Source information: Lysine riboswitch aptamer: a 171-nucleotide sequence from Lacticaseibacillus thailandensis. The base pairs follow the family's consensus structure, which is taken from published work. Taxonomically the source falls in Lacticaseibacillus thailandensis (Bacteria, Bacillota, Lactobacillaceae, Lacticaseibacillus).
RNA sequence: CGACGAAAUAGAGGUCGCGGGGACGACCACAGCUAGACGAGUAGCGGAUACGAUGACUCUAGUUGAAAGCAACCCCGCCGAAACGACAGUUGCUCCGCAGCAACUGUCGUUGGGCCGGUCGACGAAAGUCGCCGGACUGUCUUGCCACUGGCAAGGAGCGCUAUGAUUGUU
Numbered sequence: 001c002g003a004c005g006a007a008a009u010a011g012a013g014g015u016c017g018c019g020g021g022g023a024c025g026a027c028c029a030c031a032g033c034u035a036g037a038c039g040a041g042u043a044g045c046g047g048a049u050a051c052g053a054u055g056a057c058u059c060u061a062g063u064u065g066a067a068a069g070c071a072a073c074c075c076c077g078c079c080g081a082a083a084c085g086a087c088a089g090u091u092g093c094u095c096c097g098c099a100g101c102a103a104c105u106g107u108c109g110u111u112g113g114g115c116c117g118g119u120c121g122a123c124g125a126a127a128g129u130c131g132c133c134g135g136a137c138u139g140u141c142u143u144g145c146c147a148c149u150g151g152c153a154a155g156g157a158g159c160g161c162u163a164u165g166a167u168u169g170u171u
Stems, first nucleotide, its partner, number of pairs: 008164004017078006025070001031064007082111012112138002115135004120131004140156007